[Rfam]
RNA sequence: GUCAACCACCCCACCCUGAAGGAUGGGGCUUGAAGGGGGGAACCCUAAGAGUCCGGGGUUGACCAGACCAAGAUUGGGAUUCGUCCUGAUCACCGUUGCACAGAAGAUAGUAGACCCACCUGCGAAUGCUUCCUCAGUUCGCAGCACUGGAAACCGCAGCAGCAGACAAGCCACGGGUAGGCGCGAAACGGGCUGCGGUCGGGUGUCACCACCCACCUGCUGUACAACAAGGUCGAGGGGAGAUGCCC
Dot-bracket structure: (((((((..((((.((....)).)).))((((.............)))).......)))))))..((((..((((((((....))))))))...((((.((((.(..........((..(((((((([.[[[[[[.))))))))....))..((((((((...............................))))))))..................).)))).))))..))))..]]]]]].]....
RNA: HNH endonuclease-associated RNA and ORF (HEARO) RNA
Organism: Sinimarinibacterium sp. NLF-5-8